[Rfam]
RNA sequence: UCUUCCGUGGCGCAAUUGGCUAGCGCGUUCGACUGUUAAGUCUCCGACCCGGCAUCGAGAGGUUGUCAGUUCAAGCCUGACCGGAAGAG
Number, nucleotide and partner (000 for none) at each position: 001u088002c087003u086004u085005c084006c083007g082008u000009g000010g026011c025012g024013c023014a000015a000016u000017u000018g000019g000020c000021u000022a000023g013024c012025g011026c010027g000028u059029u058030c057031g056032a055033c000034u000035g000036u000037u000038a000039a000040g000041u000042c000043u000044c000045c000046g000047a000048c000049c000050c000051g000052g000053c000054a000055u032056c031057g030058a029059g028060a000061g000062g000063u000064u000065g081066u080067c079068a078069g077070u000071u000072c000073a000074a000075g000076c000077c069078u068079g067080a066081c065082c007083g006084g005085a004086a003087g002088a001089g000

The family of this 89-nucleotide RNA sequence from Pyricularia oryzae is "tRNA".
The family's RNA type in Rfam is transfer RNA.
Pairs were carried over by alignment from the consensus structure, which is taken from published work.
It scores 51 bits against the family's covariance model.
NCBI's taxonomy places the organism under Eukaryota, Fungi, saccharomyceta, Pyricularia, Pyricularia oryzae.